[Rfam]
Nucleotides: 061
Base pairs, nucleotide, nucleotide: 035058036057037056038055039054040053041052042051043050044049
Number, partner (000 for none) and nucleotide at each position: 001000c002000a003000g004000u005000g006000a007000u008000u009000u010000c011000a012000g013000c014000u015000c016000u017000u018000u019000u020000a021000g022000a023000a024000u025000u026000u027000g028000u029000c030000c031000a032000g033000u034000a035058g036057g037056u038055u039054u040053c041052c042051c043050g044049c045000g046000c047000u048000c049044g050043c051042g052041g053040g054039a055038a056037g057036c058035c059000g060000c061000u